[Rfam]
The family of this 155-nucleotide RNA sequence from Limobrevibacterium gyesilva is "6S / SsrS RNA". The base pairs follow the family's consensus structure, which is taken from published work. The match comes from Rfam's covariance-model search (74 bits). E. coli 6S RNA was the first non coding RNA to be sequenced, but its function was unknown until recently. It consists of 184 nucleotides that fold into an extended hairpin structure with a large single-stranded internal bulge. The 6S RNA specifically associates with RNA polymerase holoenzyme containing the sigma70 specificity factor. This interaction represses expression from a sigma70-dependent promoter during stationary phase. 6S RNA homologs have recently been identified in most bacterial genomes. Many Gram-positive species have two copies of 6S RNA. In Bacillus subtilis, both copies appear to interact with RNA polymerase holoenzyme containing the housekeeping sigma factor and be expressed during different stages of growth. In many proteobacteria, 6S RNA may be processed from a transcript encoding homologs of the E. coli YgfA protein which is a putative 5-formyltetrahydrofolate cycloligase activity. Taxonomically the source falls in Limobrevibacterium (Bacteria, Pseudomonadati, Alphaproteobacteria, Acetobacteraceae).
RNA sequence: ACGGAGCUGCCCGGUGCGUCAGGUAAUUCAUCCCCAGGGCCAAUAAGCAACUCCCGGGAGCUGGCUCUGUCGUGAUCCUGGUCACGGUACCCGGCGCCCACCUGCUCACGCAGGCCUUGGGAGGAUGAGACGCCAACGGCCAUGGCGGCUCCACC
Numbered sequence: 001a002c003g004g005a006g007c008u009g010c011c012c013g014g015u016g017c018g019u020c021a022g023g024u025a026a027u028u029c030a031u032c033c034c035c036a037g038g039g040c041c042a043a044u045a046a047g048c049a050a051c052u053c054c055c056g057g058g059a060g061c062u063g064g065c066u067c068u069g070u071c072g073u074g075a076u077c078c079u080g081g082u083c084a085c086g087g088u089a090c091c092c093g094g095c096g097c098c099c100a101c102c103u104g105c106u107c108a109c110g111c112a113g114g115c116c117u118u119g120g121g122a123g124g125a126u127g128a129g130a131c132g133c134c135a136a137c138g139g140c141c142a143u144g145g146c147g148g149c150u151c152c153a154c155c
Base pairs, nucleotide, nucleotide: 003152004151005150006149007148008147009146010145011144013141014140015139017138018137019136031122032121033120034119036117037116038115040114041113056099057098058097060095061094062093063092064091069088070087071086072085073084074083075082